[Rfam]
RNA: THF (Tetrahydrofolate) riboswitch aptamer
Organism: Butyrivibrio sp. INlla14
RNA sequence: UGCAGAGUAGACGUUAGAGCGUUAAGUGCCUGGUGAACAGGGAGUUGUCAUCGGGACGAAGAGUAUUUGACUCGCGGUUUUAGUGUCGCAUCCCGCUGCU
Numbered sequence: 001u002g003c004a005g006a007g008u009a010g011a012c013g014u015u016a017g018a019g020c021g022u023u024a025a026g027u028g029c030c031u032g033g034u035g036a037a038c039a040g041g042g043a044g045u046u047g048u049c050a051u052c053g054g055g056a057c058g059a060a061g062a063g064u065a066u067u068u069g070a071c072u073c074g075c076g077g078u079u080u081u082a083g084u085g086u087c088g089c090a091u092c093c094c095g096c097u098g099c100u
Stems, first nucleotide, its partner, number of pairs: 002099004010087010020076003026057002029055008040093003044089001061073004